[Rfam]
RNA sequence: UCGCACGUCGCACCCCGGGCUUGUCUGAAAUUUCGAUGAAGAUCGAAGCCCCAUUGCACGUGCCAAAUCGAAUCUGCCGUUCAGUGUUGCAGUUUAGCAUUCGAUUUUUUUCUGGUGGCUGAUCUGUGUCAAAGCAAUGGCUACAAUC
Dot-bracket structure: ..((((((.((.....((((((((((.............))).)).)))))....))))))))............((((((...((.(((((....(((................).))....))))).))....)))))).......
Numbered sequence: 001u002c003g004c005a006c007g008u009c010g011c012a013c014c015c016c017g018g019g020c021u022u023g024u025c026u027g028a029a030a031u032u033u034c035g036a037u038g039a040a041g042a043u044c045g046a047a048g049c050c051c052c053a054u055u056g057c058a059c060g061u062g063c064c065a066a067a068u069c070g071a072a073u074c075u076g077c078c079g080u081u082c083a084g085u086g087u088u089g090c091a092g093u094u095u096a097g098c099a100u101u102c103g104a105u106u107u108u109u110u111u112c113u114g115g116u117g118g119c120u121g122a123u124c125u126g127u128g129u130c131a132a133a134g135c136a137a138u139g140g141c142u143a144c145a146a147u148c
Stems, first nucleotide, its partner, number of pairs: 003063006010057002017051005022045002024042003076141006085131002088128005097119002099116001